Description:
The family of this 66-nucleotide sequence from Lysobacter antibioticus is "Fluoride riboswitch aptamer (crcB RNA motif)". Gene Ontology terms of the family: positive regulation of gene expression and response to fluoride. Lineage of the source: Bacteria > Pseudomonadota > Gammaproteobacteria > Lysobacteraceae > Lysobacter. Pairs were carried over by alignment from the consensus structure, which is taken from published work.
[Rfam]
RNA sequence: CUUAGGGAAGGAGAUGGCAUUCCUCCUUGAACUGCCGGUUUUCUGGCUGAUGAUGCCUACCGCACC
Numbered sequence: 001c002u003u004a005g006g007g008a009a010g011g012a013g014a015u016g017g018c019a020u021u022c023c024u025c026c027u028u029g030a031a032c033u034g035c036c037g038g039u040u041u042u043c044u045g046g047c048u049g050a051u052g053a054u055g056c057c058u059a060c061c062g063c064a065c066c
Stems, first nucleotide, its partner, number of pairs: 010026004016057006034047004